[Rfam]
RNA sequence: UGAGUAAACCGGGUGAUCGCGGGCGCAGAAGCCGAAAGGCGGCGUCUGAGGAAAGUCCGGGCUCCGCAGGGCAGGGUGCUGGGCAACUCCCAGUGGGGGUGACCCCAAGGAUAGUGCCACAGAAAUGCGGACCGCCGUUUGAGAGGUGGGAUGUGGGAGGCUGGAAAACAGUUCUCACUUCCCACUUCUCAAACGGCAAGGGUGGAACGGUGCGGUAAGAGCGCACCAGCGGCCGCGGCGACGGGCCGGCUAGGUAAACCCCACCCGGAGCAAGACCGAAUAGGGGGACACGGGAGCGGCCCGCUCCGUCCCCGGGUAAGGUCGCUUAAGGCGCCGGGCAACCGGCGUCUCAGACAGAUGAUCAUCCAUGACAGAACCCGGCUUACAGGUUUGCUCACAGC
Numbered sequence: 001u002g003a004g005u006a007a008a009c010c011g012g013g014u015g016a017u018c019g020c021g022g023g024c025g026c027a028g029a030a031g032c033c034g035a036a037a038g039g040c041g042g043c044g045u046c047u048g049a050g051g052a053a054a055g056u057c058c059g060g061g062c063u064c065c066g067c068a069g070g071g072c073a074g075g076g077u078g079c080u081g082g083g084c085a086a087c088u089c090c091c092a093g094u095g096g097g098g099g100u101g102a103c104c105c106c107a108a109g110g111a112u113a114g115u116g117c118c119a120c121a122g123a124a125a126u127g128c129g130g131a132c133c134g135c136c137g138u139u140u141g142a143g144a145g146g147u148g149g150g151a152u153g154u155g156g157g158a159g160g161c162u163g164g165a166a167a168a169c170a171g172u173u174c175u176c177a178c179u180u181c182c183c184a185c186u187u188c189u190c191a192a193a194c195g196g197c198a199a200g201g202g203u204g205g206a207a208c209g210g211u212g213c214g215g216u217a218a219g220a221g222c223g224c225a226c227c228a229g230c231g232g233c234c235g236c237g238g239c240g241a242c243g244g245g246c247c248g249g250c251u252a253g254g255u256a257a258a259c260c261c262c263a264c265c266c267g268g269a270g271c272a273a274g275a276c277c278g279a280a281u282a283g284g285g286g287g288a289c290a291c292g293g294g295a296g297c298g299g300c301c302c303g304c305u306c307c308g309u310c311c312c313c314g315g316g317u318a319a320g321g322u323c324g325c326u327u328a329a330g331g332c333g334c335c336g337g338g339c340a341a342c343c344g345g346c347g348u349c350u351c352a353g354a355c356a357g358a359u360g361a362u363c364a365u366c367c368a369u370g371a372c373a374g375a376a377c378c379c380g381g382c383u384u385a386c387a388g389g390u391u392u393g394c395u396c397a398c399a400g401c
Stems, first nucleotide, its partner, number of pairs: 001397010011386001012366007020048007028040001053384003057381005062270004069302004074266005079093005094108001095106004109261002114259002116255003132201002134197018209227006229250001230248005236243002274323004284313006293307005330349008
Background: The family of this 401-nucleotide RNA from Desulfotomaculum copahuensis is "Bacterial RNase P class A". It is annotated as a ribozyme. Rfam's curators write: Ribonuclease P (RNase P) is a ubiquitous endoribonuclease, found in archaea, bacteria and eukarya as well as chloroplasts and mitochondria. The match comes from Rfam's covariance-model search (300 bits).